A member of the RNA family "mir-148/mir-152 microRNA precursor family" from Cyprinus carpio, 64 nucleotides long. The organism belongs to Cyprinus, within Eukaryota. Pairs were carried over by alignment from the consensus structure, which was predicted with RNAalifold.
RNA sequence: AGUAAAGUUCUGUGAUACACUCCGACUCUAAUUGCUUGCAGUCAGUGCAUUACAGAACUUUGUU
Numbered sequence: 001a002g003u004a005a006a007g008u009u010c011u012g013u014g015a016u017a018c019a020c021u022c023c024g025a026c027u028c029u030a031a032u033u034g035c036u037u038g039c040a041g042u043c044a045g046u047g048c049a050u051u052a053c054a055g056a057a058c059u060u061u062g063u064u
Base pairs, nucleotide, nucleotide: 001064002063003062004061005060006059007058008057009056010055011054012053018047019046020045021044024043025042026041027040